[Rfam]
RNA sequence: CCCUUAUCUUUUAAAAGUUUCAAGUUGGUCCCUUAUCUUUUUUUUAGGUUUCAAGUUAGUCCCUUCCGUCAAUUUUUUUACUGUUACCGUUAAAUCUGUCAUCUGUUCAAGUGUGUCACGUGUCCAAAUCAGUUUGCCACGUGUCCAAAUUUAACGGAAAUAGUUAAAAAAUUGACGGAAGGGACCAACUUGAAACCUAAAAUAAAGAUAAGGGACCAACUUAAAACUUUUAAAAGAUAAGGGG
Numbered sequence: 001c002c003c004u005u006a007u008c009u010u011u012u013a014a015a016a017g018u019u020u021c022a023a024g025u026u027g028g029u030c031c032c033u034u035a036u037c038u039u040u041u042u043u044u045u046a047g048g049u050u051u052c053a054a055g056u057u058a059g060u061c062c063c064u065u066c067c068g069u070c071a072a073u074u075u076u077u078u079u080a081c082u083g084u085u086a087c088c089g090u091u092a093a094a095u096c097u098g099u100c101a102u103c104u105g106u107u108c109a110a111g112u113g114u115g116u117c118a119c120g121u122g123u124c125c126a127a128a129u130c131a132g133u134u135u136g137c138c139a140c141g142u143g144u145c146c147a148a149a150u151u152u153a154a155c156g157g158a159a160a161u162a163g164u165u166a167a168a169a170a171a172u173u174g175a176c177g178g179a180a181g182g183g184a185c186c187a188a189c190u191u192g193a194a195a196c197c198u199a200a201a202a203u204a205a206a207g208a209u210a211a212g213g214g215a216c217c218a219a220c221u222u223a224a225a226a227c228u229u230u231u232a233a234a235a236g237a238u239a240a241g242g243g244g
Stems, first nucleotide, its partner, number of pairs: 002242007023221003027217003031213010042202002045199003
RNA: MIR2655 microRNA precursor family